Notes
Shown here is a 99-nucleotide RNA from Flammeovirgaceae bacterium 311, a member of the family "TPP riboswitch aptamer (THI element)". NCBI's taxonomy places the organism under Bacteria, Pseudomonadati, Bacteroidota, Cytophagia, Flammeovirgaceae. A search with the family's covariance model found it, with a score of 62 bits.
RNA sequence: UCCAUGCUUUAGGGGUGCCUCACAUUUGUGUGGCUGAGAUCAUACCCUCAUAAACCUGAUCCGGUUCGUACCGGUGUAGGGAAAAGUUCGCUUCCAUGC
Numbered sequence: 001u002c003c004a005u006g007c008u009u010u011a012g013g014g015g016u017g018c019c020u021c022a023c024a025u026u027u028g029u030g031u032g033g034c035u036g037a038g039a040u041c042a043u044a045c046c047c048u049c050a051u052a053a054a055c056c057u058g059a060u061c062c063g064g065u066u067c068g069u070a071c072c073g074g075u076g077u078a079g080g081g082a083a084a085a086g087u088u089c090g091c092u093u094c095c096a097u098g099c
Base pairs, nucleotide, nucleotide: 006087007086008085009084010083011048012047013046014045016042017034018033019032021030055080056079057078058077061074062073063072064071